[Rfam]
RNA sequence: CCGGGCUUCAGGCGGACGCCCGUUCAGACGGCUCUCGUCCAAGUCCGC
Numbered sequence: 001c002c003g004g005g006c007u008u009c010a011g012g013c014g015g016a017c018g019c020c021c022g023u024u025c026a027g028a029c030g031g032c033u034c035u036c037g038u039c040c041a042a043g044u045c046c047g048c
Base pairs, nucleotide, nucleotide: 002022003021004020005019006018012048013047014046015045016044027039028038029037030036031035
The record is a 48-nucleotide sequence from Novosphingobium sp. 9U, which matches "chrB-b RNA" in Rfam. It scores 42 bits against the family's covariance model. The source organism's lineage runs through Bacteria, Pseudomonadota, Alphaproteobacteria, Sphingomonadales and Novosphingobium.